Shown here is a 75-nucleotide sequence from Laticauda laticaudata, a member of the family "Mammalian CPEB3 ribozyme". The source organism's lineage runs through Eukaryota, Metazoa, Dipnotetrapodomorpha, Tetrapoda and Laticauda. A search with the family's covariance model found it, with a score of 38 bits. The family has 14 seed sequences and 5,706 matches in Rfam 15.1. The family's consensus secondary structure is taken from published work. Gene Ontology term of the family: RNA nuclease activity.
RNA sequence: UUAGCCUUUUGGGUGGAGGAAGGAGUGUUCACAUCGCGGUCCCUCUCAGGUAUCUGUUUACCUGUGAAUCCUUCU
Numbered sequence: 001u002u003a004g005c006c007u008u009u010u011g012g013g014u015g016g017a018g019g020a021a022g023g024a025g026u027g028u029u030c031a032c033a034u035c036g037c038g039g040u041c042c043c044u045c046u047c048a049g050g051u052a053u054c055u056g057u058u059u060a061c062c063u064g065u066g067a068a069u070c071c072u073u074c075u
Stems, first nucleotide, its partner, number of pairs: 011042004018075007025037003047064006